RNA: Eukaryotic small subunit ribosomal RNA, nucleotides 33 to 625
Nucleotides: 593
Stems, first nucleotide, its partner, number of pairs: 003471004009464001010430001016428003020425003025057002031054002037049001064383003074306003080300001083299002089294004101136001103134002110126002113123003148183002152179002189253005204241004218227003264287003271282003308354003315345003320342006327335001358380004362373004385406002388403003408419001410417002436462001438461003445457003477509003480505004485500001487498003516537002518533001520532001549590004560586004569575002
Number, partner (000 for none) and nucleotide at each position: 001000c002000g003471u004470u005469u006468u007000a008000a009464a010430g011000g012000u013000u014000a015000a016428g017427c018426c019000a020425u021424g022423c023000a024000a025057g026056u027000c028000u029000c030000a031054g032053u033000a034000c035000a036000g037049g038000u039000c040000g041000c042000u043000u044000a045000c046000g047000g048000c049037c050000g051000a052000a053032a054031c055000c056026g057025c058000g059000g060000a061000u062000g063000g064383c065382u066381c067000a068000u069000u070000a071000u072000a073000u074306c075305a076304g077000u078000u079000u080300u081000a082000a083299u084298c085000c086000g087000u088000a089294u090293g091292a092291u093000u094000u095000a096000u097000c098000a099000c100000a101136a102000u103134u104133g105000g106000a107000u108000a109000c110126c111125u112000g113123u114122g115121g116000c117000a118000a119000u120000u121115c122114u123113a124000g125111a126110g127000c128000u129000a130000a131000u132000a133104c134103a135000u136101u137000a138000u139000u140000a141000u142000a143000a144000u145000a146000a147000a148183u149182u150000u151000a152179c153178a154000c155000u156000c157000u158000a159000u160000c161000c162000u163000u164000u165000c166000u167000g168000g169000u170000u171000c172000a173000g174000a175000g176000u177000c178153u179152g180000u181000a182149a183148a184000a185000g186000c187000a188000a189253u190252c191251a192250u193249c194000a195000c196000c197000a198000c199000c200000a201000u202000a203000a204241a205240c206239c207238g208000a209000u210000c211000a212000u213000a214000a215000a216000a217000a218227g219226g220225a221000a222000u223000u224000c225220u226219c227218c228000u229000u230000u231000g232000g233000u234000g235000c236000u237000a238207u239206g240205g241204u242000g243000a244000u245000u246000c247000a248000g249193g250192a251191u252190g253189a254000g255000c256000g257000u258000u259000g260000c261000a262000g263000a264287g265286c266285g267000c268000a269000a270000a271282g272281g273280u274000c275000a276000u277000u278000g279000a280273a281272c282271c283000g284000c285266c286265g287264c288000u289000a290000u291092a292091u293090u294089a295000u296000g297000c298084g299083a300080g301000u302000u303000u304076c305075u306074g307000c308354c309353c310352u311000a312000u313000c314000a315345a316344c317343u318000u319000u320342a321341c322340u323339g324338u325337a326000a327335g328000g329000u330000a331000u332000u333000g334000g335327c336000c337325u338324a339323c340322a341321g342320u343317g344316g345315u346000g347000u348000u349000c350000a351000c352310g353309g354308g355000u356000a357000a358380c359379g360378g361377g362373g363372a364371a365370u366000c367000u368000g369000g370365g371364u372363u373362c374000g375000a376000u377361u378360c379359c380358g381066g382065a383064g384000a385406g386405g387000g388403a389402g390401c391000c392000u393000g394000a395000u396000a397000a398000a399000c400000g401390g402389c403388u404000a405386c406385c407000a408419c409000a410417u411416c412000c413000a414000a415000g416411g417410a418000a419408g420000g421000c422000a423022g424021c425020a426018g427017g428016c429000g430010c431000g432000g433000a434000a435000a436462u437000u438461a439460a440459c441000c442000u443000a444000a445457u446456a447455c448000u449000a450000g451000c452000u453000c454000u455447g456446u457445g458000a459440g460439u461438u462436a463000g464009u465000g466000a467000c468006g469005a470004a471003a472000a473000a474000u475000a476000u477509u478508g479507a480505u481504g482503u483502g484000u485500g486000u487498c488497u489496c490000c491000u492000a493000a494000u495000g496489g497488a498487g499000c500485c501000u502483c503482a504481c505480g506000a507479u508478c509477g510000a511000a512000a513000u514000g515000a516537g517536u518533u519000u520532a521000u522000c523000u524000u525000a526000a527000a528000u529000c530000c531000u532520u533518a534000c535000u536517g537516c538000a539000a540000g541000g542000a543000g544000c545000u546000a547000u548000c549590g550589g551588a552587g553000g554000g555000c556000a557000a558000g559000c560586c561585u562584g563583g564000u565000g566000c567000c568000a569575g570574c571000a572000g573000c574570g575569c576000g577000g578000u579000a580000a581000u582000u583563c584562c585561a586560g587552c588551u589550c590549c591000u592000u593000u